[Rfam]
The family of this 74-nucleotide RNA from Paracoccus sphaerophysae is "Singlet oxygen resistance RNA X".
About the family: SorX (RSs2461)like SorY is a singlet oxygen induced sRNA that counteracts oxidative stress by targeting mRNA for a transporter in Rhodobacter. It also has an impact on resistance against organic hydroperoxides.
For this family Rfam cites "Regulation of a polyamine transporter by the conserved 3' UTR-derived sRNA SorX confers resistance to singlet oxygen and organic hydroperoxides in Rhodobacter sphaeroides" (Peng et al., RNA Biol, 2016).
The family's RNA type in Rfam is small RNA.
Its family is annotated with response to photooxidative stress in the Gene Ontology.

RNA sequence: GGGCAGUGAAGCGAUGGGUCAUCCAUCUCUUCACCUCCCUGUUGGACUUGCCGGGCGUCAGCCCGGCUUUUUUU
Numbered sequence: 001g002g003g004c005a006g007u008g009a010a011g012c013g014a015u016g017g018g019u020c021a022u023c024c025a026u027c028u029c030u031u032c033a034c035c036u037c038c039c040u041g042u043u044g045g046a047c048u049u050g051c052c053g054g055g056c057g058u059c060a061g062c063c064c065g066g067c068u069u070u071u072u073u074u
Stems, first nucleotide, its partner, number of pairs: 008032004013027002050067007